[Rfam]
RNA sequence: GCUGGCAUAAUGAUGAGAACCUUUGCCGUUUACCCAUCUGAAGAGUUUUUGAUGUGUGUUGUUGAGUCUGAAAUGCCAGU
Number, nucleotide and partner (000 for none) at each position: 001g080002c079003u078004g077005g076006c075007a074008u000009a000010a000011u000012g000013a000014u000015g000016a000017g000018a000019a000020c000021c000022u000023u000024u000025g000026c000027c000028g000029u000030u000031u000032a000033c000034c000035c000036a000037u000038c000039u000040g000041a000042a000043g000044a000045g000046u000047u000048u000049u000050u000051g000052a000053u000054g000055u000056g000057u000058g000059u000060u000061g000062u000063u000064g000065a000066g000067u000068c000069u000070g000071a000072a000073a000074u007075g006076c005077c004078a003079g002080u001
Small nucleolar RNA SNORD87: an 80-nucleotide RNA sequence from Onychorhynchus coronatus.
A search with the family's covariance model found it, with a score of 51 bits.
A reference for the family is Gogolevskaya et al. (2002), "U87 RNA, a novel C/D box small nucleolar RNA from mammalian cells", Gene.
The pairing is the family consensus, mapped onto this sequence.
NCBI's taxonomy places the organism under Eukaryota, Gnathostomata, Archosauria, Tyrannidae, Onychorhynchus.
Gene Ontology terms of the family: nucleolus and RNA processing.